[Rfam]
The record is a 266-nucleotide sequence from Candidatus Kurthia intestinigallinarum, which matches "Bacterial large signal recognition particle RNA" in Rfam. On this family, see Rosenblad et al., Nucleic Acids Res 2003: "SRPDB: Signal Recognition Particle Database". Pairs were carried over by alignment from the consensus structure, which is taken from published work.

RNA sequence: CUAUGCUAGGUGGGGAGGUAGCGGUGCCCUAUAACUCGCAAUCCGCUUUAGCGAGACUGAAGUCCUUUUCGAGGCUGUCCGUAUGUUUGGUCUGCCUCGUGCACGUAGUGUUGAAGAUUGGGUCCUGCGCAAUGAGCGCUUAUGAACCAUGUCAGGUCCGGAAGGAAGCAGCAUUAAGUAGGUUAACUCAUGUGCCGUGGGGUAGCCUGAUCUGAGCUGGCGACAGGAGUAACGCUUGUGUACGGCAGUCGAAGAAAGGUGCAUGG
Numbered sequence: 001c002u003a004u005g006c007u008a009g010g011u012g013g014g015g016a017g018g019u020a021g022c023g024g025u026g027c028c029c030u031a032u033a034a035c036u037c038g039c040a041a042u043c044c045g046c047u048u049u050a051g052c053g054a055g056a057c058u059g060a061a062g063u064c065c066u067u068u069u070c071g072a073g074g075c076u077g078u079c080c081g082u083a084u085g086u087u088u089g090g091u092c093u094g095c096c097u098c099g100u101g102c103a104c105g106u107a108g109u110g111u112u113g114a115a116g117a118u119u120g121g122g123u124c125c126u127g128c129g130c131a132a133u134g135a136g137c138g139c140u141u142a143u144g145a146a147c148c149a150u151g152u153c154a155g156g157u158c159c160g161g162a163a164g165g166a167a168g169c170a171g172c173a174u175u176a177a178g179u180a181g182g183u184u185a186a187c188u189c190a191u192g193u194g195c196c197g198u199g200g201g202g203u204a205g206c207c208u209g210a211u212c213u214g215a216g217c218u219g220g221c222g223a224c225a226g227g228a229g230u231a232a233c234g235c236u237u238g239u240g241u242a243c244g245g246c247a248g249u250c251g252a253a254g255a256a257a258g259g260u261g262c263a264u265g266g
Stems, first nucleotide, its partner, number of pairs: 001266006009058003012030004017025001019023001035055005064259006073250005080244007089235001093231002097228002100225002105221002107218003115213009124201006130192002133190004138183006149174004157166003
NCBI's taxonomy places the organism under Bacteria, Bacillati, Bacillota, Bacilli, Kurthia.